The family of this 91-nucleotide RNA sequence from Peptoanaerobacter stomatis is "Selenocysteine transfer RNA". The family's consensus secondary structure is taken from published work. The organism belongs to Peptoanaerobacter, within Bacteria. It scores 71 bits against the family's covariance model.

RNA sequence: GGGAAUAUGUAAGUGCCGGUGCAUUUCGUGGUCUUCAAAAUCAUAGGGGGAUAUAAAAACUCCUCGGGAGGUUCGACUCCUUCAUAUUCCC
Numbered sequence: 001g002g003g004a005a006u007a008u009g010u011a012a013g014u015g016c017c018g019g020u021g022c023a024u025u026u027c028g029u030g031g032u033c034u035u036c037a038a039a040a041u042c043a044u045a046g047g048g049g050g051a052u053a054u055a056a057a058a059a060c061u062c063c064u065c066g067g068g069a070g071g072u073u074c075g076a077c078u079c080c081u082u083c084a085u086a087u088u089c090c091c
Stems, first nucleotide, its partner, number of pairs: 001091009011026006028044005047065005068082004